RNA sequence: CCACGUACGUUGGGAGAAGCCGCUUUGGUGCGGUGCCGAAGGAGCAACCGCCCCGGAAACUCUCAGGCAAAAGGACCAGCGCACGGCC
Numbered sequence: 001c002c003a004c005g006u007a008c009g010u011u012g013g014g015a016g017a018a019g020c021c022g023c024u025u026u027g028g029u030g031c032g033g034u035g036c037c038g039a040a041g042g043a044g045c046a047a048c049c050g051c052c053c054c055g056g057a058a059a060c061u062c063u064c065a066g067g068c069a070a071a072a073g074g075a076c077c078a079g080c081g082c083a084c085g086g087c088c
Base pairs, nucleotide, nucleotide: 006083008081009080010079011078012077013076020033021032022031023030035068036067037066038064039063042062043061044060048056049055

A member of the RNA family "Glycine riboswitch aptamer" from Pseudorhizobium pelagicum, 88 nucleotides long. Rfam links the family to the GO term glycine biosynthetic process.